[Rfam]
RNA sequence: UAAAAAGGACCGAGGUCGGCUAAGUUCGCAACGUCCUGUUGCAAUGCCGACACUAGCACGUCCUGUGCG
Numbered sequence: 001u002a003a004a005a006a007g008g009a010c011c012g013a014g015g016u017c018g019g020c021u022a023a024g025u026u027c028g029c030a031a032c033g034u035c036c037u038g039u040u041g042c043a044a045u046g047c048c049g050a051c052a053c054u055a056g057c058a059c060g061u062c063c064u065g066u067g068c069g
Base pairs, nucleotide, nucleotide: 015051016050017049018048019047020046028042029041030040031039032038056068057067058066059065

Shown here is a 69-nucleotide sequence from Oceanobacillus indicireducens, a member of the family "Bacillaceae-1 RNA". By type it is a small RNA. NCBI's taxonomy places the organism under Bacteria, Bacillota, Bacilli, Bacillaceae, Oceanobacillus. The family's consensus secondary structure is taken from published work. Rfam 15.1 lists 5,721 matches to the family in 247 species.